The family of this 84-nucleotide RNA sequence from Carlito syrichta is "Small nucleolar RNA SNORD60".
A reference for the family is Galardi et al. (2002), "Purified box C/D snoRNPs are able to reproduce site-specific 2'-O-methylation of target RNA in vitro", Mol Cell Biol.
It is annotated as a C/D-box small nucleolar RNA.
A search with the family's covariance model found it, with a score of 77 bits.
Rfam links the family to the GO terms nucleolus and RNA processing.
RNA sequence: AGACCUGUGGUGAAUCGCUUUAAUAUCUGACGCCUCAUAUGAAAAUUGCACAUGUAGUCUGAUUAUUUUACAAGACUGAGGCUU
Numbered sequence: 001a002g003a004c005c006u007g008u009g010g011u012g013a014a015u016c017g018c019u020u021u022a023a024u025a026u027c028u029g030a031c032g033c034c035u036c037a038u039a040u041g042a043a044a045a046u047u048g049c050a051c052a053u054g055u056a057g058u059c060u061g062a063u064u065a066u067u068u069u070a071c072a073a074g075a076c077u078g079a080g081g082c083u084u
Stems, first nucleotide, its partner, number of pairs: 001083002004081002045058005